[Rfam]
RNA sequence: AUAUUCGUAAAAAGGACAACUCAUAUAAUUGUGAUAAUAUGGUUCGCAAGUUUCUACAAGAUACCUUAAAUAUCUCGCUAUGAGUACGACGAUUAACAAA
Number, nucleotide and partner (000 for none) at each position: 001a000002u000003a000004u000005u000006c000007g000008u000009a000010a000011a000012a000013a000014g000015g000016a000017c000018a000019a085020c084021u083022c082023a081024u080025a079026u000027a000028a000029u049030u048031g047032u046033g045034a044035u000036a000037a000038u000039a000040u000041g000042g000043u000044u034045c033046g032047c031048a030049a029050g000051u000052u000053u000054c000055u000056a000057c000058a000059a075060g074061a073062u072063a071064c000065c000066u000067u000068a000069a000070a000071u063072a062073u061074c060075u059076c000077g000078c000079u025080a024081u023082g022083a021084g020085u019086a000087c000088g000089a000090c000091g000092a000093u000094u000095a000096a000097c000098a000099a000100a000

A member of the RNA family "Purine riboswitch aptamer" from Clostridium saccharobutylicum, 100 nucleotides long.
Taxonomically the source falls in Clostridium saccharobutylicum (Bacteria, Bacillati, Eubacteriales, Clostridiaceae).
A search with the family's covariance model found it, with a score of 73 bits.